[Rfam]
A member of the RNA family "RT-2 RNA" from Flavonifractor sp. An135, 189 nucleotides long. The base pairs follow the family's consensus structure, which is taken from published work. A search with the family's covariance model found it, with a score of 129 bits.

RNA sequence: CAAAUUUAUUGUAAUAGGAGAGAUACUUCCCGGGCGGAAAGCCCGAAACCGCCCUUUGUGGCCACGGCACGGACGCUGCUUGCAUGGCGGGGUAUUGUGCUAUCCCCGUUUCAUGUGCCGGGGUCAUGCGGUUUAGCCGCACACCUACACCACAACCGCACGGAGGCGCGAAUACUUAUUAUGACCAGC
Numbered sequence: 001c002a003a004a005u006u007u008a009u010u011g012u013a014a015u016a017g018g019a020g021a022g023a024u025a026c027u028u029c030c031c032g033g034g035c036g037g038a039a040a041g042c043c044c045g046a047a048a049c050c051g052c053c054c055u056u057u058g059u060g061g062c063c064a065c066g067g068c069a070c071g072g073a074c075g076c077u078g079c080u081u082g083c084a085u086g087g088c089g090g091g092g093u094a095u096u097g098u099g100c101u102a103u104c105c106c107c108g109u110u111u112c113a114u115g116u117g118c119c120g121g122g123g124u125c126a127u128g129c130g131g132u133u134u135a136g137c138c139g140c141a142c143a144c145c146u147a148c149a150c151c152a153c154a155a156c157c158g159c160a161c162g163g164a165g166g167c168g169c170g171a172a173u174a175c176u177u178a179u180u181a182u183g184a185c186c187a188g189c
Stems, first nucleotide, its partner, number of pairs: 032044004051169002053166006061124003065120006075083002086110007128159005134154001135146002